[Rfam]
RNA: mir-146 microRNA precursor family
Organism: Gallus gallus
RNA sequence: GUGUAUCCUCAGCUUUGAGAACUGAAUUCCAUGGGUUGUAAUUGAAUCCUUUGUCAGACCCAUGGGGCUCAGUUCUUCAGCUUGGAUAUUUCUG
Numbered sequence: 001g002u003g004u005a006u007c008c009u010c011a012g013c014u015u016u017g018a019g020a021a022c023u024g025a026a027u028u029c030c031a032u033g034g035g036u037u038g039u040a041a042u043u044g045a046a047u048c049c050u051u052u053g054u055c056a057g058a059c060c061c062a063u064g065g066g067g068c069u070c071a072g073u074u075c076u077u078c079a080g081c082u083u084g085g086a087u088a089u090u091u092c093u094g
Base pairs, nucleotide, nucleotide: 008085009084011082012081013080018076019075020074021073022072023071024070025069033061034060035059036058